A member of the RNA family "pan motif" from Papillibacter cinnamivorans, 88 nucleotides long. The match comes from Rfam's covariance-model search (48 bits). Taxonomically the source falls in Papillibacter cinnamivorans (Bacteria, Clostridia, Eubacteriales, Oscillospiraceae).
RNA sequence: CGGGUGGCAUCCCUAGGGAGCUACACCGAUAGAUUUGAAAUUUCCCGGCGAAUUGCUUAUAUCCGAGAACUCGGAAUAAGACAAGAGG
Numbered sequence: 001c002g003g004g005u006g007g008c009a010u011c012c013c014u015a016g017g018g019a020g021c022u023a024c025a026c027c028g029a030u031a032g033a034u035u036u037g038a039a040a041u042u043u044c045c046c047g048g049c050g051a052a053u054u055g056c057u058u059a060u061a062u063c064c065g066a067g068a069a070c071u072c073g074g075a076a077u078a079a080g081a082c083a084a085g086a087g088g
Stems, first nucleotide, its partner, number of pairs: 001028003004024005010019002053084003056080005062075003
Dot-bracket structure: ((((((((.((......))))))).)))........................((((((((.(((........)))))))).)))....
Annotation:
Rfam classes the family as a cis-regulatory element.